[Rfam]
Annotation
Group II catalytic intron D1-D4-3: a 174-nucleotide RNA from Roseburia sp. OF03-24. The source organism's lineage runs through Bacteria, Bacillati, Bacillota, Clostridia and Roseburia. Gene Ontology term of the family: Group II intron splicing. It scores 88 bits against the family's covariance model. The pairing is the family consensus, mapped onto this sequence.

RNA sequence: GUAUCGGUAACGGUAUGGAUGGAGGAAGUGGUGUAGCAAAGUUCUUGAGCCUACGAACAGAAACUUGAUAAGGCGAUUAGGUGGGUAAGAUUGCAAAUCAAAUCGAAGCCCAAAUGGUAAACGUAAACCGAAAUUGUAAAUCAAUGAAAAAAGCCGGGAACAAAGGUGCGUAAC
Numbered sequence: 001g002u003a004u005c006g007g008u009a010a011c012g013g014u015a016u017g018g019a020u021g022g023a024g025g026a027a028g029u030g031g032u033g034u035a036g037c038a039a040a041g042u043u044c045u046u047g048a049g050c051c052u053a054c055g056a057a058c059a060g061a062a063a064c065u066u067g068a069u070a071a072g073g074c075g076a077u078u079a080g081g082u083g084g085g086u087a088a089g090a091u092u093g094c095a096a097a098u099c100a101a102a103u104c105g106a107a108g109c110c111c112a113a114a115u116g117g118u119a120a121a122c123g124u125a126a127a128c129c130g131a132a133a134u135u136g137u138a139a140a141u142c143a144a145u146g147a148a149a150a151a152a153g154c155c156g157g158g159a160a161c162a163a164a165g166g167u168g169c170g171u172a173a174c
Base pairs, nucleotide, nucleotide: 001016002015003014004013005012006011028174029173031171032170036167037166041161042160043159044158045157047155052146065144066143067142068141073137074136075135077132078131080129081128082127083111084110085109086108089104090103091102092101